Bacterial large subunit ribosomal RNA: a 600-nucleotide part of an RNA from Ohtaekwangia koreensis.
A search with the family's covariance model found it, with a score of 2725 bits.
NCBI's taxonomy places the organism under Bacteria, Pseudomonadati, Cytophagia, Fulvivirgaceae, Ohtaekwangia.
Pairs were carried over by alignment from the consensus structure, which is taken from published work.
RNA sequence: UAGUCACGGUGAAGAUGCCGUGUACCCGUCACGGGACGGAAAGACCCCAUGCACCUUUACUAUAGCUUCGCAUUGACAUUGGGUAGAUGAUGUGUAGGAUAGGUGGGAGGCGUUGAUCCUGUGCCGCUAGGUAUAGGGGAGCCAACGGUGAAAUACCACCCUUUAUUUAUCUGAUGUCUAAUCCCUGAAAAGGGAGACAGUGCGUGGUGGGUAGUUUGACUGGGGUGGUCGCCUCCGAAAGUGUAUCGGAGGCUUUCAAAGGUAUGCUCAGUACGCUUGGUAACCGUAUGUGGAGUGCAAUAGCAUAAGCAUGCUUGACUGUGAGACUGACAAGUCGAGCAGGAACGAAAGUUGGAUAUAGUGAUCCGGUGGUUCUGUAUGGAAGGGCCAUCGCUCAAAGGAUAAAAGGUACGCUGGGGAUAACAGGCUGAUCUCCCCCAAGAGCUCACAUCGACGGGGAGGUUUGGCACCUCGAUGUCGGCUCGUCACAUCCUGGGGCUGGAGAAGGUCCCAAGGGUUAGGCUGUUCGCCUAUUAAAGUGGCACGCGAGCUGGGUUCAGAACGUCGUGAGACAGUUCGGUCCCUAUCUGUGAUGGGCGU
Number, nucleotide and partner (000 for none) at each position: 001u000002a000003g000004u000005c022006a021007c020008g019009g018010u000011g000012a000013a000014g000015a000016u000017g000018c009019c008020g007021u006022g005023u000024a000025c597026c596027c595028g594029u593030c592031a591032c590033g000034g589035g588036a587037c000038g584039g583040a000041a000042a000043g000044a000045c000046c418047c417048c416049a415050u000051g414052c413053a410054c409055c408056u407057u406058u000059a215060c214061u213062a212063u000064a000065g000066c207067u206068u000069c204070g203071c202072a201073u000074u000075g178076a177077c176078a175079u174080u173081g172082g171083g170084u169085a168086g167087a166088u165089g164090a163091u000092g161093u000094g000095u000096a000097g000098g000099a000100u000101a000102g160103g159104u158105g157106g156107g000108a000109g143110g142111c141112g000113u000114u000115g000116a000117u000118c137119c136120u135121g134122u133123g132124c131125c130126g000127c000128u000129a000130g125131g124132u123133a122134u121135a120136g119137g118138g000139g000140a000141g111142c110143c109144a000145a000146c000147g000148g000149u000150g000151a000152a000153a000154u000155a000156c106157c105158a104159c103160c102161c092162u000163u090164u089165a088166u087167u086168u085169a084170u083171c082172u081173g080174a079175u078176g077177u076178c075179u000180a000181a000182u195183c194184c193185c000186u000187g000188a000189a000190a000191a000192g000193g184194g183195a182196g000197a000198c000199a000200g000201u072202g071203c070204g069205u000206g067207g066208u000209g000210g000211g000212u062213a061214g060215u059216u000217u000218g230219a229220c228221u227222g000223g000224g000225g000226u000227g221228g220229u219230c218231g253232c252233c251234u250235c249236c248237g000238a000239a000240a000241g000242u000243g000244u000245a000246u000247c000248g236249g235250a234251g233252g232253c231254u399255u000256u356257c355258a000259a000260a000261g000262g314263u313264a312265u311266g310267c309268u294269c293270a000271g289272u288273a287274c286275g285276c000277u000278u000279g000280g000281u000282a000283a000284c000285c275286g274287u273288a272289u271290g000291u000292g000293g269294a268295g304296u303297g000298c000299a000300a000301u000302a000303g296304c295305a000306u000307a000308a000309g267310c266311a265312u264313g263314c262315u000316u000317g000318a000319c342320u341321g340322u339323g000324a000325g336326a335327c334328u000329g000330a000331c000332a000333a000334g327335u326336c325337g000338a000339g322340c321341a320342g319343g000344a353345a352346c351347g000348a000349a000350a000351g346352u345353u344354g000355g257356a256357u000358a000359u000360a000361g000362u000363g000364a000365u000366c000367c393368g392369g391370u390371g389372g388373u387374u000375c386376u385377g000378u000379a000380u000381g000382g000383a000384a000385g376386g375387g373388c372389c371390a370391u369392c368393g367394c000395u000396c000397a000398a000399a254400g000401g000402a000403u000404a000405a000406a057407a056408g055409g054410u053411a000412c000413g052414c051415u049416g048417g047418g046419g000420a000421u000422a000423a000424c000425a000426g000427g468428c467429u466430g000431a465432u462433c461434u460435c459436c458437c457438c456439c000440a000441a000442g452443a451444g000445c000446u000447c000448a000449c000450a000451u443452c442453g000454a000455c000456g438457g437458g436459g435460a434461g433462g432463u000464u000465u431466g429467g428468c427469a000470c000471c000472u000473c000474g000475a000476u000477g000478u000479c554480g552481g551482c550483u549484c546485g543486u542487c541488a540489c539490a000491u000492c517493c516494u000495g512496g511497g510498g509499c508500u507501g000502g000503a000504g000505a000506a000507g500508g499509u498510c497511c496512c495513a000514a000515g000516g493517g492518u000519u533520a532521g531522g530523c529524u000525g000526u000527u000528c000529g523530c522531c521532u520533a519534u000535u000536a000537a000538a000539g489540u488541g487542g486543c485544a000545c000546g484547c000548g000549a483550g482551c481552u480553g000554g479555g000556u000557u000558c000559a000560g578561a577562a576563c575564g573565u572566c571567g000568u000569g000570a000571g566572a565573c564574a000575g563576u562577u561578c560579g000580g000581u000582c000583c039584c038585u000586a000587u036588c035589u034590g032591u031592g030593a029594u028595g027596g026597g025598c000599g000600u000